The record is an 84-nucleotide sequence from Parasphaerochaeta coccoides, which matches "tRNA" in Rfam. The match comes from Rfam's covariance-model search (51 bits). It is annotated as a transfer RNA.
[Rfam]
RNA sequence: GCGGUCGUGGUGGAAUUGGUAGACACGCCAGCUUGAGGUGCUGGUGGCCGAAAGGCUGUGCUGGUUCAAGUCCAGUCGUCCGCA
Number, nucleotide and partner (000 for none) at each position: 001g083002c082003g081004g080005u000006c078007g077008u000009g000010g026011u025012g024013g000014a000015a000016u000017u000018g000019g000020u000021a000022g000023a000024c012025a011026c010027g000028c044029c043030a042031g041032c040033u000034u000035g000036a000037g000038g000039u000040g032041c031042u030043g029044g028045u000046g000047g000048c000049c000050g000051a000052a000053a000054g000055g000056c000057u000058g000059u000060g076061c075062u074063g073064g072065u000066u000067c000068a000069a000070g000071u000072c064073c063074a062075g061076u060077c007078g006079u000080c004081c003082g002083c001084a000